[Rfam]
RNA sequence: CAUGUCUAUUGUACUUCAUCAGGUGCUCUGGUGGAAUUUUGAACCCGGCACAUGUUGAAGUACACUCAAUAUG
Numbered sequence: 001c002a003u004g005u006c007u008a009u010u011g012u013a014c015u016u017c018a019u020c021a022g023g024u025g026c027u028c029u030g031g032u033g034g035a036a037u038u039u040u041g042a043a044c045c046c047g048g049c050a051c052a053u054g055u056u057g058a059a060g061u062a063c064a065c066u067c068a069a070u071a072u073g
Stems, first nucleotide, its partner, number of pairs: 001073004010064003014060005020054002023051005030045002

The record is a 73-nucleotide RNA sequence from Drosophila busckii, which matches "mir-305 microRNA precursor family" in Rfam. A search with the family's covariance model found it, with a score of 94 bits. Lineage of the source: Eukaryota > Bilateria > Eumetabola > Cyclorrhapha > Dorsilopha.